Annotation: This 68-nucleotide sequence from Blastococcus saxobsidens belongs to the Rfam family "ASdes TB sRNA". Rfam 15.1 lists 1,192 matches to the family in 825 species. Pairs were carried over by alignment from the consensus structure, which is taken from published work. For this family Rfam cites "Identification of small RNAs in Mycobacterium tuberculosis" (Arnvig and Young, Mol Microbiol, 2009).
RNA sequence: AGCUCCACCGGGUCCACGCCGCGGGUGACGACGAGGUAGUCGCGCAGUGCGAUCCCGUGCCGCCCCUC
Numbered sequence: 001a002g003c004u005c006c007a008c009c010g011g012g013u014c015c016a017c018g019c020c021g022c023g024g025g026u027g028a029c030g031a032c033g034a035g036g037u038a039g040u041c042g043c044g045c046a047g048u049g050c051g052a053u054c055c056c057g058u059g060c061c062g063c064c065c066c067u068c
Base pairs, nucleotide, nucleotide: 005062008059012029013028015027016026017025035056036055038053040052041051042050043049044048
Record summary
Taxonomically the source falls in Blastococcus (Bacteria, Bacillati, Actinomycetota, Geodermatophilaceae).